Acido-Lenti-1 RNA: a 46-nucleotide RNA sequence from Geobacter argillaceus. The base pairs follow the family's consensus structure, which is taken from published work. Taxonomically the source falls in Geobacter (Bacteria, Pseudomonadati, Desulfuromonadia, Geobacterales).
[Rfam]
RNA sequence: CCGGGGGAUAAAUCCCCCGGCUACAGGCGAGCGCCCCUACGGGGCU
Numbered sequence: 001c002c003g004g005g006g007g008a009u010a011a012a013u014c015c016c017c018c019g020g021c022u023a024c025a026g027g028c029g030a031g032c033g034c035c036c037c038u039a040c041g042g043g044g045c046u
Stems, first nucleotide, its partner, number of pairs: 001020008033045005